[Rfam]
RNA sequence: GAUUAUCGAAGGAAUAAAGCCUUAAUUCAUAAUC
Numbered sequence: 001g002a003u004u005a006u007c008g009a010a011g012g013a014a015u016a017a018a019g020c021c022u023u024a025a026u027u028c029a030u031a032a033u034c
Stems, first nucleotide, its partner, number of pairs: 001034006008028001009023004
RNA: S4-Flavobacteria ribosomal protein leader